[Rfam]
Shown here is a 142-nucleotide sequence from Proteus myxofaciens, a member of the family "CpoB/ybgF ICR thermometer". NCBI's taxonomy places the organism under Bacteria, Pseudomonadota, Enterobacterales, Morganellaceae, Proteus myxofaciens. The family's RNA type in Rfam is RNA thermoregulator. Its family is annotated with response to temperature stimulus and regulation of translation in the Gene Ontology.
RNA sequence: UCAAAUAUCAAUCGUUUCUUACGGUAAAGAAAAACCAGCAGUUCUGGGUCAUGACGAAGCAGCUUAUGCGAAAAACCGUCGUGCAGUACUGGUUUACUAAGAGAACGGCAUGAACAACAGUAACUUCAGACCUUUAUUGAUG
Numbered sequence: 001u002c003a004a005a006u007a008u009c010a011a012u013c014g015u016u017u018c019u020u021a022c023g024g025u026a027a028a029g030a031a032a033a034a035c036c037a038g039c040a041g042u043u044c045u046g047g048g049u050c051a052u053g054a055c056g057a058a059g060c061a062g063c064u065u066a067u068g069c070g071a072a073a074a075a076c077c078g079u080c081g082u083g084c085a086g087u088a089c090u091g092g093u094u095u096a097c098u099a100a101g102a103g104a105a106c107g108g109c110a111u112g113a114a115c116a117a118c119a120g121u122a123a124c125u126u127c128a129g130a131c132c133u134u135u136a137u138u139g140a141u142g
Base pairs, nucleotide, nucleotide: 001047002046003045008040014035015034016033017032019030020029054141057138058137062133065130067128068127075121076120078115079113080112081111082110083109084108086106087105089103090102